[Rfam]
RNA: Streptomyces RNA 3202
Organism: Streptomyces sp. SID8352
RNA sequence: CCACGUCCCGACGCACUCCCCCCGGUGCCGGGACCUUCCCGAGCCGGGCGCGGCGCCUUCCCCCGGGCGCCGUGGCCCGGCCCUCCU
Numbered sequence: 001c002c003a004c005g006u007c008c009c010g011a012c013g014c015a016c017u018c019c020c021c022c023c024g025g026u027g028c029c030g031g032g033a034c035c036u037u038c039c040c041g042a043g044c045c046g047g048g049c050g051c052g053g054c055g056c057c058u059u060c061c062c063c064c065g066g067g068c069g070c071c072g073u074g075g076c077c078c079g080g081c082c083c084u085c086c087u
Base pairs, nucleotide, nucleotide: 005034006033007032008031009030010029012027013026014025041083043081044080045079046078047077048076049075051072052071053070054069055068056067057066058065